[Rfam]
RNA sequence: GAUUGCAUUUCCUUUCUGUAAUUCGCGGCUG
Numbered sequence: 001g002a003u004u005g006c007a008u009u010u011c012c013u014u015u016c017u018g019u020a021a022u023u024c025g026c027g028g029c030u031g
Stems, first nucleotide, its partner, number of pairs: 001024001002022005
This 31-nucleotide RNA belongs to the Rfam family "S4-Bacteroidia ribosomal protein leader". Rfam's curators put it in the seed alignment. The family's consensus secondary structure is taken from published work.